[Rfam]
Annotation: Rfam assigns this 141-nucleotide RNA sequence from Peromyscus maniculatus to the family "Small Cajal body specific RNA 4". Rfam describes the family as follows. scaRNAs are a specific class of small nuclear RNAs which localise to the Cajal bodies and guide the modification of RNA polymerase II transcribed spliceosomal RNAs U1, U2, U4, U5 and U12. ACA26 belongs to the H/ACA box class of guide RNAs as it has the predicted hairpin-hinge-hairpin-tail structure, conserved H/ACA-box motifs and is found associated with GAR1. It is annotated as a small Cajal body RNA. It scores 88 bits against the family's covariance model. The organism belongs to Peromyscus maniculatus, within Eukaryota.
Nucleotides: 141
Stems, first nucleotide, its partner, number of pairs: 003058001006056004017045003021041003025037002066134004077125001080121006088114003
Number, partner (000 for none) and nucleotide at each position: 001000a002000a003058c004000a005000g006056a007055g008054g009053a010000c011000c012000a013000a014000g015000a016000a017045g018044g019043c020000u021041g022040a023039g024000c025037c026036u027000g028000a029000u030000g031000a032000a033000g034000c035000a036026a037025g038000a039023c040022u041021u042000u043019g044018c045017u046000g047000a048000c049000c050000c051000a052000c053009u054008c055007c056006u057000a058003g059000g060000a061000a062000a063000a064000a065000a066134g067133g068132g069131u070000u071000g072000g073000a074000g075000a076000g077125a078000c079000a080121a081120g082119c083118c084117c085116u086000a087000u088114u089113g090112g091000g092000g093000g094000u095000c096000g097000g098000g099000g100000a101000g102000a103000g104000a105000g106000g107000a108000g109000a110000a111000a112090u113089c114088a115000c116085a117084g118083g119082g120081c121080u122000g123000a124000c125077u126000g127000u128000a129000u130000c131069a132068c133067c134066c135000a136000a137000c138000a139000u140000u141000u